The record is a 59-nucleotide RNA sequence from Microbacterium lemovicicum, which matches "msiK RNA" in Rfam. The source organism's lineage runs through Bacteria, Bacillati, Actinomycetota, Micrococcales and Microbacterium. The family's consensus secondary structure is taken from published work. The match comes from Rfam's covariance-model search (61 bits). Rfam classes the family as a cis-regulatory element.
[Rfam]
RNA sequence: CUCCCGCUUUCUUUACUACGGAUCGUCCGGCACGUACCUGCCGGUGAAGGAGAACAGAU
Numbered sequence: 001c002u003c004c005c006g007c008u009u010u011c012u013u014u015a016c017u018a019c020g021g022a023u024c025g026u027c028c029g030g031c032a033c034g035u036a037c038c039u040g041c042c043g044g045u046g047a048a049g050g051a052g053a054a055c056a057g058a059u
Stems, first nucleotide, its partner, number of pairs: 009051007027044006